This 76-nucleotide RNA from Ceyx cyanopectus belongs to the Rfam family "Small nucleolar RNA SNORD19". Its Rfam clan is "SNORD19 clan".
[Rfam]
RNA sequence: GAGCUGUGAAGAAGAUUUUAAAAGGAUCUGAAAUUCCACUGAAGACAUAAGAUCCAACUCUGAGCUCGCUAUCCUA
Numbered sequence: 001g002a003g004c005u006g007u008g009a010a011g012a013a014g015a016u017u018u019u020a021a022a023a024g025g026a027u028c029u030g031a032a033a034u035u036c037c038a039c040u041g042a043a044g045a046c047a048u049a050a051g052a053u054c055c056a057a058c059u060c061u062g063a064g065c066u067c068g069c070u071a072u073c074c075u076a
Stems, first nucleotide, its partner, number of pairs: 001067004
A reference for the family is Huttenhofer et al. (2001), "RNomics: an experimental approach that identifies 201 candidates for novel, small, non-messenger RNAs in mouse", EMBO J. Rfam links the family to the GO terms RNA processing and nucleolus. The family's RNA type in Rfam is C/D-box small nucleolar RNA.